[Rfam]
RNA sequence: GACAGAAUGAUGAGUCACUCCUCGCUGAGUGACAAUAAGCCGAGUGUUAGCGUUUCUCUUUACGGGAUUCGUGAUGAUCAUUCCCUCGAAAGCGAUAAGUGAACUGACUGUC
Number, nucleotide and partner (000 for none) at each position: 001g112002a111003c110004a109005g108006a000007a000008u000009g000010a000011u000012g000013a000014g000015u000016c000017a000018c000019u000020c000021c000022u000023c000024g000025c000026u000027g000028a000029g000030u000031g000032a000033c000034a000035a000036u000037a000038a000039g000040c000041c000042g000043a000044g000045u000046g000047u000048u000049a000050g000051c000052g000053u000054u000055u000056c000057u000058c000059u000060u000061u000062a000063c000064g000065g000066g000067a000068u000069u000070c000071g000072u000073g000074a000075u000076g000077a000078u000079c000080a000081u000082u000083c000084c000085c000086u000087c000088g000089a000090a000091a000092g000093c000094g000095a000096u000097a000098a000099g000100u000101g000102a000103a000104c000105u000106g000107a000108c005109u004110g003111u002112c001